[Rfam]
RNA sequence: CAGCAAAUUGGUAGCUGCAAGCCAGGGGCGGUAGCCUG
Numbered sequence: 001c002a003g004c005a006a007a008u009u010g011g012u013a014g015c016u017g018c019a020a021g022c023c024a025g026g027g028g029c030g031g032u033a034g035c036c037u038g
Stems, first nucleotide, its partner, number of pairs: 008025005